[Rfam]
RNA sequence: ACCGCGUACUUACCUACUAUAUAGUACCUGAAACACAUGUAUGCCGCCUACUAUAUAGCAGGUAAGUACGCGGUUU
Numbered sequence: 001a002c003c004g005c006g007u008a009c010u011u012a013c014c015u016a017c018u019a020u021a022u023a024g025u026a027c028c029u030g031a032a033a034c035a036c037a038u039g040u041a042u043g044c045c046g047c048c049u050a051c052u053a054u055a056u057a058g059c060a061g062g063u064a065a066g067u068a069c070g071c072g073g074u075u076u
Stems, first nucleotide, its partner, number of pairs: 001074015017058010029046002033042001035040001
mir-7563 microRNA precursor family: a 76-nucleotide RNA sequence from Ameiurus melas. Rfam 15.1 lists 362 matches to the family in 2 species.